[Rfam]
RNA: SAM riboswitch aptamer (S box leader)
Organism: Pedobacter antarcticus
RNA sequence: AGCUUAUAAAGAAAGACGGAGGGAUUAGACCCGACGAAGUCUUAGCAACCUGUGCUGACAAGGUGCUACAUUCUACUCGAACGCUGCGGCUGUUCCUGAAAGAUAAGUU
Numbered sequence: 001a002g003c004u005u006a007u008a009a010a011g012a013a014a015g016a017c018g019g020a021g022g023g024a025u026u027a028g029a030c031c032c033g034a035c036g037a038a039g040u041c042u043u044a045g046c047a048a049c050c051u052g053u054g055c056u057g058a059c060a061a062g063g064u065g066c067u068a069c070a071u072u073c074u075a076c077u078c079g080a081a082c083g084c085u086g087c088g089g090c091u092g093u094u095c096c097u098g099a100a101a102g103a104u105a106a107g108u109u
Base pairs, nucleotide, nucleotide: 001109002108003107004106005105006104007103013043014042015041016040017039021032022031023030026075027074028073029072044067045066046065047064049063050062051060052059053058071101076098079095080094081093082092083091